[Rfam]
RNA sequence: GGAUGUUAAAUUGACUCUAGUAGGGAGUCCGUCUCUGUGCGACUCCCUAAUCGAGUCAGGUUGACUUCACU
Numbered sequence: 001g002g003a004u005g006u007u008a009a010a011u012u013g014a015c016u017c018u019a020g021u022a023g024g025g026a027g028u029c030c031g032u033c034u035c036u037g038u039g040c041g042a043c044u045c046c047c048u049a050a051u052c053g054a055g056u057c058a059g060g061u062u063g064a065c066u067u068c069a070c071u
Stems, first nucleotide, its partner, number of pairs: 011059007021049009
Description
The family of this 71-nucleotide RNA from Pieris brassicae is "mir-929 microRNA precursor family". Rfam links the family to the GO terms miRNA-mediated post-transcriptional gene silencing and RISC complex. Taxonomically the source falls in Pieris (Eukaryota, Pancrustacea, Amphiesmenoptera, Neolepidoptera).